[Rfam]
RNA sequence: GUAGUCAUUUGGCAAACUGGUUGAAAGGCCAGGACGCAAAGCCUCCGGUCUAAAGACAUGUCGUCCAGGAUAGCGGGGUUGCCACA
Numbered sequence: 001g002u003a004g005u006c007a008u009u010u011g012g013c014a015a016a017c018u019g020g021u022u023g024a025a026a027g028g029c030c031a032g033g034a035c036g037c038a039a040a041g042c043c044u045c046c047g048g049u050c051u052a053a054a055g056a057c058a059u060g061u062c063g064u065c066c067a068g069g070a071u072a073g074c075g076g077g078g079u080u081g082c083c084a085c086a
Base pairs, nucleotide, nucleotide: 012037013036017032018031019030020029021028022027040080041079042078043077045076046075047074048071049070050069055065056064057063

Shown here is an 86-nucleotide sequence from Aeromonas hydrophila, a member of the family "c-di-GMP-I riboswitch aptamer". Its family is annotated with cyclic-di-GMP binding in the Gene Ontology. Pairs were carried over by alignment from the consensus structure, which is taken from published work. It scores 74 bits against the family's covariance model. The source organism's lineage runs through Bacteria, Pseudomonadati, Aeromonadaceae, Aeromonas and Aeromonas hydrophila subsp. hydrophila. GEMM was predicted in a large-scale screen for bacterial structured RNA regulatory elements. Genes associated with GEMM are involved in a diverse array of functions, including chemotaxis regulation, signal transduction, secretion and chitin.